[Rfam]
RNA: Glycine riboswitch aptamer
Organism: Paenibacillus beijingensis
RNA sequence: UGACGAAUGACGGGAGAGACUUGCGGAUAAAAUAACCGCAUGCACCGAAGGAGCAAGUCGCACGGAUAGCCGUCCGGCGAUCAAUCUCUCAGGUAAACGAACCGCCUUCCGACG
Numbered sequence: 001u002g003a004c005g006a007a008u009g010a011c012g013g014g015a016g017a018g019a020c021u022u023g024c025g026g027a028u029a030a031a032a033u034a035a036c037c038g039c040a041u042g043c044a045c046c047g048a049a050g051g052a053g054c055a056a057g058u059c060g061c062a063c064g065g066a067u068a069g070c071c072g073u074c075c076g077g078c079g080a081u082c083a084a085u086c087u088c089u090c091a092g093g094u095a096a097a098c099g100a101a102c103c104g105c106c107u108u109c110c111g112a113c114g
Stems, first nucleotide, its partner, number of pairs: 007108001009106001011104003020042001022040005044094003047090002051088003057081005